[Rfam]
RNA sequence: UUUGAGGGGAAUGUUGUCUGGCUCGAGGCCACCAACUAGAUCUAAAAUCAGAAACAAGCAAUUAGCUCAAUCAGUUGAUAGAUCAAAUUUGAUUGACCAAAGUUGAGAAGGAGAUCAUUGAUCGGGUAUUAGUGUCGUCGGACCAGGCUUCAUUCCCCCCAAU
Numbered sequence: 001u002u003u004g005a006g007g008g009g010a011a012u013g014u015u016g017u018c019u020g021g022c023u024c025g026a027g028g029c030c031a032c033c034a035a036c037u038a039g040a041u042c043u044a045a046a047a048u049c050a051g052a053a054a055c056a057a058g059c060a061a062u063u064a065g066c067u068c069a070a071u072c073a074g075u076u077g078a079u080a081g082a083u084c085a086a087a088u089u090u091g092a093u094u095g096a097c098c099a100a101a102g103u104u105g106a107g108a109a110g111g112a113g114a115u116c117a118u119u120g121a122u123c124g125g126g127u128a129u130u131a132g133u134g135u136c137g138u139c140g141g142a143c144c145a146g147g148c149u150u151c152a153u154u155c156c157c158c159c160c161a162a163u
Stems, first nucleotide, its partner, number of pairs: 002162003006158008016148006024140003

Rfam assigns this 163-nucleotide RNA from Nyssa sinensis to the family "mir-166 microRNA precursor family". It scores 84 bits against the family's covariance model. This family represents the plant microRNA (miRNA) precursor mir-166. The family has 31 seed sequences and 2,599 matches in Rfam 15.1. The family's consensus secondary structure was predicted with PFOLD. NCBI's taxonomy places the organism under Eukaryota, Euphyllophyta, Mesangiospermae, Gunneridae, Nyssa.